[Rfam]
RNA sequence: UGGGCUUGACAUCAUCAUACUUGGGAUGUAUGACACGAAGUCCCAAGCAGGCUGAUGUCAGGCCCA
Dot-bracket structure: ((((((((((((((.(...((((((((............))))))))...).))))))))))))))

Source information:
The record is a 66-nucleotide RNA sequence, which matches "mir-1662 microRNA precursor family" in Rfam. The family has 3 seed sequences and 382 matches in Rfam 15.1. Rfam's curators put it in the seed alignment. The base pairs follow the family's consensus structure, which was predicted with RNAalifold.